Record summary: The family of this 83-nucleotide RNA sequence from Glycine max is "Small nucleolar RNA R160". About the family: snoR160 is a C/D box small nucleolar RNA, which acts as a methylation guide for 25S ribosomal RNA in plants. snoR160 has been alternatively named snoZ270 in rice. A search with the family's covariance model found it, with a score of 50 bits. The family has 9 seed sequences and 799 matches in Rfam 15.1. The organism belongs to Glycine subgen. Soja, within Eukaryota. On this family, see Chen et al., Nucleic Acids Res 2003: "The high diversity of snoRNAs in plants: identification and comparative study of 120 snoRNA genes from Oryza sativa".
[Rfam]
RNA sequence: AGCAAAAUGAUGAAUCCAUAACUUGUCUGAAACGGAUGAGGAUAUCUUGUGUUUCUUAUUGUCUUCCAAGUUCUCUGAUUGCU
Numbered sequence: 001a002g003c004a005a006a007a008u009g010a011u012g013a014a015u016c017c018a019u020a021a022c023u024u025g026u027c028u029g030a031a032a033c034g035g036a037u038g039a040g041g042a043u044a045u046c047u048u049g050u051g052u053u054u055c056u057u058a059u060u061g062u063c064u065u066c067c068a069a070g071u072u073c074u075c076u077g078a079u080u081g082c083u
Stems, first nucleotide, its partner, number of pairs: 001083005